Nucleotides: 122
Stems, first nucleotide, its partner, number of pairs: 060082004065077004085099002088097003
Number, partner (000 for none) and nucleotide at each position: 001000c002000c003000g004000u005000c006000c007000c008000g009000u010000c011000u012000c013000g014000u015000g016000g017000g018000a019000c020000a021000u022000c023000c024000g025000g026000c027000g028000c029000c030000g031000c032000u033000u034000c035000a036000g037000g038000g039000c040000c041000g042000a043000g044000a045000g046000c047000u048000a049000g050000g051000c052000u053000g054000g055000c056000c057000g058000g059000g060082u061081g062080c063079g064000c065077c066076u067075u068074c069000c070000a071000c072000c073000g074068g075067a076066a077065g078000a079063c080062g081061c082060a083000a084000a085099g086098c087000c088097g089096a090095c091000a092000g093000c094000c095090g096089u097088c098086g099085c100000a101000c102000c103000u104000c105000a106000g107000g108000g109000a110000g111000a112000g113000c114000u115000c116000a117000c118000c119000c120000a121000u122000g